[Rfam]
RNA sequence: GUGGGUUUAGCUCAGUUGGUUAGAGCGCCGCUCUGUGGAAGCGGAGGCCGGGGGUUCAAGUCCCCUAAUCCACC
Numbered sequence: 001g002u003g004g005g006u007u008u009a010g011c012u013c014a015g016u017u018g019g020u021u022a023g024a025g026c027g028c029c030g031c032u033c034u035g036u037g038g039a040a041g042c043g044g045a046g047g048c049c050g051g052g053g054g055u056u057c058a059a060g061u062c063c064c065c066u067a068a069u070c071c072a073c074c
Stems, first nucleotide, its partner, number of pairs: 001073007010026004028044005050066005

Source information
This 74-nucleotide sequence from Deinococcus radiopugnans belongs to the Rfam family "tRNA". Rfam classes the family as a transfer RNA. It scores 68 bits against the family's covariance model. Rfam describes the family as follows. Transfer RNA (tRNA) molecules are approximately 80 nucleotides in length. Taxonomically the source falls in Deinococcus (Bacteria, Deinococci, Deinococcales, Deinococcaceae).